[Rfam]
RNA sequence: AACAGUGUUUGGCAAUGGUAGAACUCACUCUGGUGGGCUGAGAGGAUCCGGUGGUUCUAGACUUGCCAACAACUGAC
Numbered sequence: 001a002a003c004a005g006u007g008u009u010u011g012g013c014a015a016u017g018g019u020a021g022a023a024c025u026c027a028c029u030c031u032g033g034u035g036g037g038c039u040g041a042g043a044g045g046a047u048c049c050g051g052u053g054g055u056u057c058u059a060g061a062c063u064u065g066c067c068a069a070c071a072a073c074u075g076a077c
Base pairs, nucleotide, nucleotide: 003075004074005073006072009069010068011067012066013065014064015063019059020058021057022056023055024054028053030051031050032049033048
Rfam assigns this 77-nucleotide RNA from Labrus bergylta to the family "mir-182 microRNA precursor family". It scores 82 bits against the family's covariance model. The organism belongs to Labrus, within Eukaryota. For this family Rfam cites "Identification and expression profiling of microRNAs during bovine oocyte maturation using heterologous approach" (Tesfaye et al., Mol Reprod Dev, 2009). Pairs were carried over by alignment from the consensus structure, which was predicted with RNAalifold.